The family of this 243-nucleotide RNA from Tupaia belangeri is "Small nucleolar RNA SNORA53". The source organism's lineage runs through Eukaryota, Eumetazoa, Teleostomi, Euteleostomi and Tupaia. The family's RNA type in Rfam is H/ACA-box small nucleolar RNA. Rfam's curators put it in the seed alignment. From the family's description: The snoRNA ACA53 belongs to the H/ACA family of pseudouridylation guide snoRNAs.
RNA sequence: AACAUGCUUCCUUAGAUCCACCUUUGUGGAUGAAUCUUGAACUGAGUUCUACUUGUAAACCUUGUUUCUUGUAGUUCCAGUCAAAAAACAUCCAGCAACUUUUUUGGUUGUACAGUCAAAGGUGCUUGAGUCAUUGGCAUGUGAGAUAAAUAUACCUGCACAUUAGUCUAAGGUUCUGAUAGAAAUGACAUGCAGUUAUGCUGCCAUUUUCCACUGUCAGGACUUGACUGGUGUGCGGACACU
Numbered sequence: 001a002a003c004a005u006g007c008u009u010c011c012u013u014a015g016a017u018c019c020a021c022c023u024u025u026g027u028g029g030a031u032g033a034a035u036c037u038u039g040a041a042c043u044g045a046g047u048u049c050u051a052c053u054u055g056u057a058a059a060c061c062u063u064g065u066u067u068c069u070u071g072u073a074g075u076u077c078c079a080g081u082c083a084a085a086a087a088a089c090a091u092c093c094a095g096c097a098a099c100u101u102u103u104u105u106g107g108u109u110g111u112a113c114a115g116u117c118a119a120a121g122g123u124g125c126u127u128g129a130g131u132c133a134u135u136g137g138c139a140u141g142u143g144a145g146a147u148a149a150a151u152a153u154a155c156c157u158g159c160a161c162a163u164u165a166g167u168c169u170a171a172g173g174u175u176c177u178g179a180u181a182g183a184a185a186u187g188a189c190a191u192g193c194a195g196u197u198a199u200g201c202u203g204c205c206a207u208u209u210u211c212c213a214c215u216g217u218c219a220g221g222a223c224u225u226g227a228c229u230g231g232u233g234u235g236c237g238g239a240c241a242c243u
Stems, first nucleotide, its partner, number of pairs: 002142007011130005019124008027094006035086001037084002041081004046077001049074004055068001057067004095111006156238005163231001165229004175221008186213002190209001192204003